The record is a 122-nucleotide RNA from Trebonia kvetii, which matches "Group II catalytic intron D1-D4-2" in Rfam. For this family Rfam cites "Control of branch-site choice by a group II intron" (Chu et al., EMBO J, 2001). The match comes from Rfam's covariance-model search (87 bits).

[Rfam]
RNA sequence: GAGGGUUGUGUGGCCCCUCGGGAUCGCCCUUCGGGGGGCGGUCUCAAGCCGCCCCGUGCUGCGUUAGCUGAAGACUGUCGUGGUGAGCGACCGGGGAAAAGGCGCCCGUUGAGGUGUCAGGC
Numbered sequence: 001g002a003g004g005g006u007u008g009u010g011u012g013g014c015c016c017c018u019c020g021g022g023a024u025c026g027c028c029c030u031u032c033g034g035g036g037g038g039c040g041g042u043c044u045c046a047a048g049c050c051g052c053c054c055c056g057u058g059c060u061g062c063g064u065u066a067g068c069u070g071a072a073g074a075c076u077g078u079c080g081u082g083g084u085g086a087g088c089g090a091c092c093g094g095g096g097a098a099a100a101g102g103c104g105c106c107c108g109u110u111g112a113g114g115u116g117u118c119a120g121g122c
Stems, first nucleotide, its partner, number of pairs: 001019005020045006027038004050121001052096005057090001058084002061081003065077003101118006
Lineage of the source: Bacteria > Actinomycetes > Streptosporangiales > Treboniaceae > Trebonia. Gene Ontology term of the family: Group II intron splicing.